RNA sequence: AGCUUUGCGCAGUGGCAGUAUCGUAGCCAAUGAGGUUUAUCCGAGGCGCGAUUAUUGCUAAUUGGAUAUUUUUAUUCUUUCAUAUUGUCAUUUAUUUUGCUCUCAUUCUUUUAAAAGUAACUUUGAAUUAUUAAAUAUGUUAAAGACA
Numbered sequence: 001a002g003c004u005u006u007g008c009g010c011a012g013u014g015g016c017a018g019u020a021u022c023g024u025a026g027c028c029a030a031u032g033a034g035g036u037u038u039a040u041c042c043g044a045g046g047c048g049c050g051a052u053u054a055u056u057g058c059u060a061a062u063u064g065g066a067u068a069u070u071u072u073u074a075u076u077c078u079u080u081c082a083u084a085u086u087g088u089c090a091u092u093u094a095u096u097u098u099g100c101u102c103u104c105a106u107u108c109u110u111u112u113a114a115a116a117g118u119a120a121c122u123u124u125g126a127a128u129u130a131u132u133a134a135a136u137a138u139g140u141u142a143a144a145g146a147c148a
Base pairs, nucleotide, nucleotide: 020052021051022050023049024048026047027046028045034042035041083125084124088119091116092115093114138148139147140146141145

U4 spliceosomal RNA: a 148-nucleotide RNA from Odobenus rosmarus. A search with the family's covariance model found it, with a score of 78 bits. Pairs were carried over by alignment from the consensus structure, which is taken from published work. U4 small nuclear RNA (U4 snRNA) is a component of the major U2-dependent spliceosome.